[Rfam]
RNA sequence: GUAAUGUUUCUUGCUCAAAUGAGUAUUCCAAUCACAGUUGCAUCUCAGUCCAAAAUAUAGGUGUUUCUAUAUAUAGCACCUCUUCACCGUAUGUUUGGCUGAUGAUAUGCUUCUGUUACUGAGAUGCUCAUUUGGGCAAGCAAUGUUAA
Numbered sequence: 001g002u003a004a005u006g007u008u009u010c011u012u013g014c015u016c017a018a019a020u021g022a023g024u025a026u027u028c029c030a031a032u033c034a035c036a037g038u039u040g041c042a043u044c045u046c047a048g049u050c051c052a053a054a055a056u057a058u059a060g061g062u063g064u065u066u067c068u069a070u071a072u073a074u075a076g077c078a079c080c081u082c083u084u085c086a087c088c089g090u091a092u093g094u095u096u097g098g099c100u101g102a103u104g105a106u107a108u109g110c111u112u113c114u115g116u117u118a119c120u121g122a123g124a125u126g127c128u129c130a131u132u133u134g135g136g137c138a139a140g141c142a143a144u145g146u147u148a149a
Stems, first nucleotide, its partner, number of pairs: 004146005010140018029121002
MIR828 microRNA precursor family: a 149-nucleotide RNA from Durio zibethinus. Rfam 15.1 lists 204 matches to the family in 134 species. Its family is annotated with miRNA-mediated post-transcriptional gene silencing and RISC complex in the Gene Ontology. The source organism's lineage runs through Eukaryota, Embryophyta, Mesangiospermae, Pentapetalae and Durio.